This 96-nucleotide RNA belongs to the Rfam family "skipping-rope RNA".
Rfam classes the family as a small RNA.

RNA sequence: GACAUCUGAGGUGGUAAAUUUCGUGUCGACCACACGCUGAUGGCAUGACAGGGGAAACCCGAGAGAUGCAGGGGCAUGGCACGCCUGCCGGAUGUU
Numbered sequence: 001g002a003c004a005u006c007u008g009a010g011g012u013g014g015u016a017a018a019u020u021u022c023g024u025g026u027c028g029a030c031c032a033c034a035c036g037c038u039g040a041u042g043g044c045a046u047g048a049c050a051g052g053g054g055a056a057a058c059c060c061g062a063g064a065g066a067u068g069c070a071g072g073g074g075c076a077u078g079g080c081a082c083g084c085c086u087g088c089c090g091g092a093u094g095u096u
Stems, first nucleotide, its partner, number of pairs: 001096008011033005023082005035063001037051003068088005